[Rfam]
RNA sequence: AGCACUCUUCCCACAGGGAAGUGCUGGCAAAUGUAAGUCCGACGUGCCUUUUGGCACUGGCCUGCCCUGCAGGCUUGGGAUUAC
Numbered sequence: 001a002g003c004a005c006u007c008u009u010c011c012c013a014c015a016g017g018g019a020a021g022u023g024c025u026g027g028c029a030a031a032u033g034u035a036a037g038u039c040c041g042a043c044g045u046g047c048c049u050u051u052u053g054g055c056a057c058u059g060g061c062c063u064g065c066c067c068u069g070c071a072g073g074c075u076u077g078g079g080a081u082u083a084c
Stems, first nucleotide, its partner, number of pairs: 001025006033084004039079002044057005059075007
RNA: S15-Methanomicrobia ribosomal protein leader